[Rfam]
RNA sequence: AGGAGACAGAAUGACCAUCCGCCAGCGCGUUGCGCCCGCGGGUGCUGCUUUG
Numbered sequence: 001a002g003g004a005g006a007c008a009g010a011a012u013g014a015c016c017a018u019c020c021g022c023c024a025g026c027g028c029g030u031u032g033c034g035c036c037c038g039c040g041g042g043u044g045c046u047g048c049u050u051u052g
Stems, first nucleotide, its partner, number of pairs: 016044007025035004
Rfam assigns this 52-nucleotide RNA to the family "ffh sRNA". It is one of the family's seed sequences.